RNA sequence: ACAAGCACUUGUAUACCACAAUGAUAUCAUUUUUACACUGUAUUUUCUAUAUUUUUCCCCUACAACUCCCUUUGAUUGAAAAGAACAUAAUCCACUUUUUUUCUCCAAUAAAAGAGAGCUGUAGAGGAAAAACAUACAAAAUGAAAUGC
Number, nucleotide and partner (000 for none) at each position: 001a000002c000003a000004a000005g000006c000007a000008c000009u000010u000011g000012u000013a000014u000015a000016c000017c000018a000019c000020a000021a000022u000023g000024a000025u000026a000027u000028c000029a000030u000031u000032u000033u000034u000035a000036c000037a000038c000039u000040g000041u000042a000043u000044u000045u000046u000047c000048u000049a000050u000051a000052u000053u000054u000055u129056u128057c127058c126059c000060c124061u123062a122063c121064a120065a000066c118067u117068c116069c000070c114071u113072u112073u111074g000075a109076u108077u107078g000079a102080a101081a100082a099083g098084a097085a096086c000087a000088u000089a000090a000091u000092c000093c000094a000095c000096u085097u084098u083099u082100u081101u080102u079103c000104u000105c000106c000107a077108a076109u075110a000111a073112a072113a071114g070115a000116g068117a067118g066119c000120u064121g063122u062123a061124g060125a000126g058127g057128a056129a055130a000131a000132a000133c000134a000135u000136a000137c000138a000139a000140a000141a000142u000143g000144a000145a000146a000147u000148g000149c000

Annotation
This 149-nucleotide RNA sequence from Vigna radiata belongs to the Rfam family "MIR2119 microRNA precursor family". Taxonomically the source falls in Vigna radiata (Eukaryota, rosids, Fabales, Fabaceae).